[Rfam]
RNA sequence: GCGGAGGGCCGGAUGGCCGCCCCCUCGGGGGAGGAAAGUCCGGACUCCCUGAAGCAGCGGUGCCGGGUAACGCCCGGGCGGGGCAACCCGACGGAAAGCGCCACAGAGAACAGACCGCCCCGGUCCGCCGGGGUAAGGGUGAAACGGUGGGGUAAGAGCCCACCGGGGGGCUGGCAACAGCCCCCGCACGGCAAGCCCCACCGGGAGCAAUGCCGAAUAGGGGGAUCGCGCCGCGCGUCGGCAGGGUCGCUUCAGCCCAGAUCCCCGGGUUGGCAGCACGAGGCCGGUGGCGACACCGGUCCCAGAGGAAUGGUCAUCUAACCUUGGGGAAACCCAAGGGGGACAGAAUCCGGCUUACAGGCCCUCCGCGCGA
Number, nucleotide and partner (000 for none) at each position: 001g369002c368003g367004g366005a365006g364007g363008g362009c361010c360011g358012g318013a317014u316015g315016g314017c313018c312019g000020c031021c030022c029023c028024c000025u000026c000027g000028g023029g022030g021031g020032a000033g000034g000035a000036a356037a355038g354039u000040c353041c352042g351043g350044a349045c207046u206047c205048c204049c000050u000051g000052a000053a252054g251055c000056a000057g000058c203059g202060g201061u200062g199063c077064c076065g075066g074067g073068u000069a000070a000071c000072g000073c067074c066075c065076g064077g063078g092079c090080g089081g088082g087083g000084c000085a000086a000087c082088c081089c080090g079091a000092c078093g198094g197095a000096a000097a000098g196099c195100g192101c191102c190103a000104c000105a000106g000107a000108g000109a000110a000111c000112a000113g000114a000115c138116c137117g134118c133119c132120c131121c130122g129123g128124u000125c000126c000127g000128c123129c122130g121131g120132g119133g118134u117135a000136a000137g116138g115139g000140u000141g000142a000143a000144a000145c000146g164147g163148u162149g161150g160151g159152g000153u000154a000155a000156g000157a000158g000159c151160c150161c149162a148163c147164c146165g187166g185167g184168g183169g182170g181171c180172u179173g178174g000175c000176a000177a000178c173179a172180g171181c170182c169183c168184c167185c166186g000187c165188a000189c000190g102191g101192c100193a000194a000195g099196c098197c094198c093199c062200a061201c060202c059203g058204g048205g047206a046207g045208c000209a000210a000211u275212g274213c273214c272215g000216a000217a000218u000219a000220g000221g266222g265223g264224g263225a262226u261227c000228g000229c000230g000231c000232c000233g000234c000235g000236c000237g000238u000239c000240g000241g000242c000243a000244g258245g257246g256247u255248c000249g000250c000251u054252u053253c000254a000255g247256c246257c245258c244259a000260g000261a226262u225263c224264c223265c222266c221267g000268g000269g000270u000271u000272g214273g213274c212275a211276g000277c000278a000279c000280g000281a000282g301283g300284c299285c298286g297287g296288u295289g294290g000291c000292g000293a000294c289295a288296c287297c286298g285299g284300u283301c282302c000303c000304a000305g000306a000307g000308g000309a000310a000311u000312g018313g017314u016315c015316a014317u013318c012319u000320a000321a000322c000323c000324u000325u000326g000327g000328g000329g000330a000331a000332a000333c000334c000335c000336a000337a000338g000339g000340g000341g000342g000343a000344c000345a000346g000347a000348a000349u044350c043351c042352g041353g040354c038355u037356u036357a000358c011359a000360g010361g009362c008363c007364c006365u005366c004367c003368g002369c001370g000371c000372g000373a000
RNA: Bacterial RNase P class A
Organism: Marivita geojedonensis